[Rfam]
RNA: Small nucleolar RNA snoR8a
Organism: Theobroma cacao
RNA sequence: GGAGUUAGUGAUGGUUAUAAAAAUAAUUCCUUAUUUUGACUUGUUUAACUUGGACAUGACAAACCUCUUAUUACAACCAUAGAAUCUGAGCUCU
Numbered sequence: 001g002g003a004g005u006u007a008g009u010g011a012u013g014g015u016u017a018u019a020a021a022a023a024u025a026a027u028u029c030c031u032u033a034u035u036u037u038g039a040c041u042u043g044u045u046u047a048a049c050u051u052g053g054a055c056a057u058g059a060c061a062a063a064c065c066u067c068u069u070a071u072u073a074c075a076a077c078c079a080u081a082g083a084a085u086c087u088g089a090g091c092u093c094u
Stems, first nucleotide, its partner, number of pairs: 003094002007092002